The record is a 74-nucleotide sequence from Xenococcus sp. PCC 7305, which matches "Glutamine riboswitch aptamer (glnA leader)" in Rfam. The literature on the family includes a 2011 paper in RNA Biol by Ames and Breaker, "Bacterial aptamers that selectively bind glutamine".
RNA sequence: AUCGUUCAUCUUUUCCUCAAUUACUUUAGGAAGGACGGAAGUAAGGAAACAGCAAGCUCCUGAAGGAACGCGCC
Numbered sequence: 001a002u003c004g005u006u007c008a009u010c011u012u013u014u015c016c017u018c019a020a021u022u023a024c025u026u027u028a029g030g031a032a033g034g035a036c037g038g039a040a041g042u043a044a045g046g047a048a049a050c051a052g053c054a055a056g057c058u059c060c061u062g063a064a065g066g067a068a069c070g071c072g073c074c
Stems, first nucleotide, its partner, number of pairs: 003070005009035007038071001044061003